[Rfam]
Nucleotides: 115
Stems, first nucleotide, its partner, number of pairs: 010106001016100009026090007034082001
Number, partner (000 for none) and nucleotide at each position: 001000a002000u003000g004000g005000g006000a007000a008000a009000u010106c011000u012000g013000u014000a015000a016100a017099g018098c019097u020096c021095a022094g023093g024092a025000g026090g027089g028088a029087u030086a031085g032084c033000a034082c035000c036000a037000u038000g039000g040000a041000g042000a043000g044000a045000c046000u047000a048000u049000a050000c051000u052000a053000u054000c055000u056000u057000c058000a059000u060000g061000a062000g063000c064000u065000u066000a067000a068000a069000a070000c071000u072000g073000c074000g075000a076000u077000c078000c079000g080000u081000u082034g083000c084032g085031c086030u087029a088028u089027c090026c091000a092024u093023c094022c095021u096020g097019a098018g099017u100016u101000u102000c103000a104000u105000g106010g107000c108000u109000u110000c111000u112000u113000u114000c115000a